RNA sequence: GUCGCAAGUUUGAGGCCACAGCAGAAGCGCUCACGGCACAGCCAUGUCAGAUUCCAAUGAAUCUGAAAAUUCUGCU
Numbered sequence: 001g002u003c004g005c006a007a008g009u010u011u012g013a014g015g016c017c018a019c020a021g022c023a024g025a026a027g028c029g030c031u032c033a034c035g036g037c038a039c040a041g042c043c044a045u046g047u048c049a050g051a052u053u054c055c056a057a058u059g060a061a062u063c064u065g066a067a068a069a070u071u072c073u074g075c076u
Base pairs, nucleotide, nucleotide: 014043015042016041020076021075022074023073024072025071026070027039029037048065049064050063051062052061053060054059

This 76-nucleotide RNA from Alligator sinensis belongs to the Rfam family "Mammalian CPEB3 ribozyme". NCBI's taxonomy places the organism under Eukaryota, Metazoa, Euteleostomi, Sarcopterygii, Alligator.